[Rfam]
RNA sequence: AUAGCAAGCCGGUCUAUCGCUGCAGCCAUAAGGCUGGAGAGGAAAGUCUGGGCAAUGCAGAGCACCGUGCUUCUGAACAGGAAGAUGCUCGUGAGGGUAUAGUAACGUAGCAGAAAAUAACCGCCUUCGGGUAAGGGUGAAAAGGUGAGGUAAGAGCUCACCAGCAGGUUAGGUAACUAGGCUGGCUGUACGUCUGACGGAUUGCAAGACCAUGUAUAUCACAAUUCCAUUUUGGAGCAAGGCUGCUCGUUUUGUUUCGUAAGAAGUUGUGAGGGGUAGGUCGCUGGAAAUAGCAGGUGACUGCUAUUGUAGAUAAAUGAUAGACGCUCCUUCGGGAGAGACAGGACCCGGCUUACAGGCUUGCUAUUUUU
Numbered sequence: 001a002u003a004g005c006a007a008g009c010c011g012g013u014c015u016a017u018c019g020c021u022g023c024a025g026c027c028a029u030a031a032g033g034c035u036g037g038a039g040a041g042g043a044a045a046g047u048c049u050g051g052g053c054a055a056u057g058c059a060g061a062g063c064a065c066c067g068u069g070c071u072u073c074u075g076a077a078c079a080g081g082a083a084g085a086u087g088c089u090c091g092u093g094a095g096g097g098u099a100u101a102g103u104a105a106c107g108u109a110g111c112a113g114a115a116a117a118u119a120a121c122c123g124c125c126u127u128c129g130g131g132u133a134a135g136g137g138u139g140a141a142a143a144g145g146u147g148a149g150g151u152a153a154g155a156g157c158u159c160a161c162c163a164g165c166a167g168g169u170u171a172g173g174u175a176a177c178u179a180g181g182c183u184g185g186c187u188g189u190a191c192g193u194c195u196g197a198c199g200g201a202u203u204g205c206a207a208g209a210c211c212a213u214g215u216a217u218a219u220c221a222c223a224a225u226u227c228c229a230u231u232u233u234g235g236a237g238c239a240a241g242g243c244u245g246c247u248c249g250u251u252u253u254g255u256u257u258c259g260u261a262a263g264a265a266g267u268u269g270u271g272a273g274g275g276g277u278a279g280g281u282c283g284c285u286g287g288a289a290a291u292a293g294c295a296g297g298u299g300a301c302u303g304c305u306a307u308u309g310u311a312g313a314u315a316a317a318u319g320a321u322a323g324a325c326g327c328u329c330c331u332u333c334g335g336g337a338g339a340g341a342c343a344g345g346a347c348c349c350g351g352c353u354u355a356c357a358g359g360c361u362u363g364c365u366a367u368u369u370u371u
Base pairs, nucleotide, nucleotide: 001367002366003365004364005363006362007361008360009359010358011356012325013324014323015322016321017320018319020039021038023036024035025034026033027032044354045353046352048351049350050349051348052347053204054203055202056201060260062258065200066199067198068197070084071083072082073081074080085100087098088097089096090095101195102194105193106192107191108190109189121136122135123132124131125130144162145161146160147159148158149157164186165184166183167182169180170179171178172177208282209281210280211279219272220271221270222269223268251266252265253264255262289308290307291306292305293304294303295302296301

The family of this 371-nucleotide sequence from Carboxylicivirga sediminis is "Bacterial RNase P class A". About the family: Ribonuclease P (RNase P) is a ubiquitous endoribonuclease, found in archaea, bacteria and eukarya as well as chloroplasts and mitochondria. Taxonomically the source falls in Carboxylicivirga (Bacteria, Bacteroidota, Bacteroidia, Marinilabiliales). Gene Ontology terms of the family: ribonuclease P activity, dimeric ribonuclease P complex and tRNA processing.